The record is a 175-nucleotide RNA sequence from Limosilactobacillus ingluviei, which matches "Lysine riboswitch aptamer" in Rfam. Riboswitches are metabolite binding domains within certain messenger RNAs that serve as precision sensors for their corresponding targets. The source organism's lineage runs through Bacteria, Bacillati, Bacilli, Lactobacillales and Limosilactobacillus.
RNA sequence: UUUAAGAGAAGAGGUUGCACCCUUCAUCAGUACUUUGUGGGAGCCGAGCAAGCGGCUGGGAACGGAAAGGAAAGGGCUGGGUGCCGAAAUCAAAAUAGGCUUGUGGCUGUUUUGGUUGGGUCGUGGCUUAAGAGGUCACGGACUGUCGCGAAUAUCGCGGGGCGCUUCCAAUUCA
Number, nucleotide and partner (000 for none) at each position: 001u000002u000003u000004a000005a000006g000007a000008g168009a167010a166011g165012a000013g000014g000015u000016u000017g084018c083019a082020c081021c080022c079023u000024u000025c076026a000027u000028c000029a000030g000031u000032a000033c069034u068035u067036u066037g000038u064039g063040g000041g000042a000043g000044c000045c000046g000047a000048g000049c000050a000051a000052g000053c000054g000055g000056c000057u000058g000059g000060g000061a000062a000063c039064g038065g000066a036067a035068a034069g033070g000071a000072a000073a000074g000075g000076g025077c000078u000079g022080g021081g020082u019083g018084c017085c000086g000087a000088a117089a116090u115091c114092a113093a112094a111095a110096u109097a108098g107099g000100c000101u000102u000103g000104u000105g000106g000107c098108u097109g096110u095111u094112u093113u092114g091115g090116u089117u088118g144119g143120g000121u141122c140123g139124u138125g137126g136127c135128u134129u000130a000131a000132g000133a000134g128135g127136u126137c125138a124139c123140g122141g121142a000143c119144u118145g000146u160147c159148g158149c157150g156151a155152a000153u000154a000155u151156c150157g149158c148159g147160g146161g000162g000163c000164g000165c011166u010167u009168c008169c000170a000171a000172u000173u000174c000175a000